[Rfam]
RNA sequence: UAAUAAGCAAAAAAUCACUUUUUAGAUUCAUUGGAAAACUAAUGUAUCUGGUCUAUAUUAUUGAUCAGAUACAUUGGUUUUCUAAUGAACCUAAAAAGUGGUUUUUUGCUUAUAA
Numbered sequence: 001u002a003a004u005a006a007g008c009a010a011a012a013a014a015u016c017a018c019u020u021u022u023u024a025g026a027u028u029c030a031u032u033g034g035a036a037a038a039c040u041a042a043u044g045u046a047u048c049u050g051g052u053c054u055a056u057a058u059u060a061u062u063g064a065u066c067a068g069a070u071a072c073a074u075u076g077g078u079u080u081u082c083u084a085a086u087g088a089a090c091c092u093a094a095a096a097a098g099u100g101g102u103u104u105u106u107u108g109c110u111u112a113u114a115a
Stems, first nucleotide, its partner, number of pairs: 003113005009107005015101011027089018049067004
A member of the RNA family "MIR2593 microRNA precursor family" from Trifolium medium, 115 nucleotides long. Pairs were carried over by alignment from the consensus structure, which was predicted with RNAalifold.